PreQ1 (pre queuosine) riboswitch aptamer: a 45-nucleotide sequence from Virgibacillus phasianinus.
From the family's description: This family is a bacterial riboswitch that binds to the metabolite preQ1, an intermediate in the biosynthesis of the modified nucleoside queuosine from GTP. One example of this riboswitch is located in the leader of the Bacillus subtilis ykvJKLM (queCDEF) operon which encodes four genes necessary for queuosine production.
NCBI's taxonomy places the organism under Bacteria, Bacillati, Bacillota, Bacilli, Virgibacillus.
The base pairs follow the family's consensus structure.
[Rfam]
RNA sequence: UUUGCCGCGGUUCGCAAACUCCCGCGUUAACAAAACUAAGGAGGA
Numbered sequence: 001u002u003u004g005c006c007g008c009g010g011u012u013c014g015c016a017a018a019c020u021c022c023c024g025c026g027u028u029a030a031c032a033a034a035a036c037u038a039a040g041g042a043g044g045a
Base pairs, nucleotide, nucleotide: 006026007025008024009023010022016037